[Rfam]
RNA sequence: AAAGUUGGACUUGGUGUCUAAAGAUUACCAACAAGACGAAGGAAUUAUCACCUUCAAGCGAUGCAGGUAUCAUCUAGUCGGUUAUGCAUCGCUACCGUAGUU
Numbered sequence: 001a002a003a004g005u006u007g008g009a010c011u012u013g014g015u016g017u018c019u020a021a022a023g024a025u026u027a028c029c030a031a032c033a034a035g036a037c038g039a040a041g042g043a044a045u046u047a048u049c050a051c052c053u054u055c056a057a058g059c060g061a062u063g064c065a066g067g068u069a070u071c072a073u074c075u076a077g078u079c080g081g082u083u084a085u086g087c088a089u090c091g092c093u094a095c096c097g098u099a100g101u102u
Stems, first nucleotide, its partner, number of pairs: 004032005011024002038055005057093009069082003
RNA: Methylobacterium-1 RNA